[Rfam]
RNA sequence: UUCUUAUCCAGAGAGGUUGAGGGAUUGGCCCUGUGACGCCUCAGCAACCACCGUGUCAAAACGGAAAGGUGCUAAAUCCAACAAGUUGCUUGCAACUUGAAAGAUGAGAA
Dot-bracket structure: ((((((((....(((((...(((.[[[[)))......)))))((((.((.(((........)))...))))))...(]]]]((((((......))))))..)))))))))
Numbered sequence: 001u002u003c004u005u006a007u008c009c010a011g012a013g014a015g016g017u018u019g020a021g022g023g024a025u026u027g028g029c030c031c032u033g034u035g036a037c038g039c040c041u042c043a044g045c046a047a048c049c050a051c052c053g054u055g056u057c058a059a060a061a062c063g064g065a066a067a068g069g070u071g072c073u074a075a076a077u078c079c080a081a082c083a084a085g086u087u088g089c090u091u092g093c094a095a096c097u098u099g100a101a102a103g104a105u106g107a108g109a110a
Stems, first nucleotide, its partner, number of pairs: 001110008013042005021031003025081004043073004048069002051064003077102001082099006
Shown here is a 110-nucleotide sequence from Siminovitchia fortis, a member of the family "SAM riboswitch aptamer (S box leader)".